[Rfam]
RNA sequence: CUGGGCAGGAUGUGAUCUCACACACGCACUACAACGCCCGGCCGGGGUGCCCUCUGUAACAGGAUGGGUCGGCAAGGCGGGUGCGUGGAGGCCUAAC
Numbered sequence: 001c002u003g004g005g006c007a008g009g010a011u012g013u014g015a016u017c018u019c020a021c022a023c024a025c026g027c028a029c030u031a032c033a034a035c036g037c038c039c040g041g042c043c044g045g046g047g048u049g050c051c052c053u054c055u056g057u058a059a060c061a062g063g064a065u066g067g068g069u070c071g072g073c074a075a076g077g078c079g080g081g082u083g084c085g086u087g088g089a090g091g092c093c094u095a096a097c
Base pairs, nucleotide, nucleotide: 023087024086025085026084027083028082029081030080036078037077038076041073042072043071044070049069050068051067052066
This 97-nucleotide RNA from Parathalassolituus penaei belongs to the Rfam family "t44 RNA".
The match comes from Rfam's covariance-model search (56 bits).
From the family's description: This family consists of a number of bacterial RNA genes of between 135 and 170 bases in length.